[Rfam]
RNA sequence: GAACCAGACGCCUGGAUAGUUGUUCAACCUCUAGAAUGCUAUGUAGGUGAGCAAAGAUUCAGGUGUUUGGUUGG
Numbered sequence: 001g002a003a004c005c006a007g008a009c010g011c012c013u014g015g016a017u018a019g020u021u022g023u024u025c026a027a028c029c030u031c032u033a034g035a036a037u038g039c040u041a042u043g044u045a046g047g048u049g050a051g052c053a054a055a056g057a058u059u060c061a062g063g064u065g066u067u068u069g070g071u072u073g074g
Stems, first nucleotide, its partner, number of pairs: 002072006009065007017057001020054002023051004028047003
RNA: mir-87 microRNA precursor family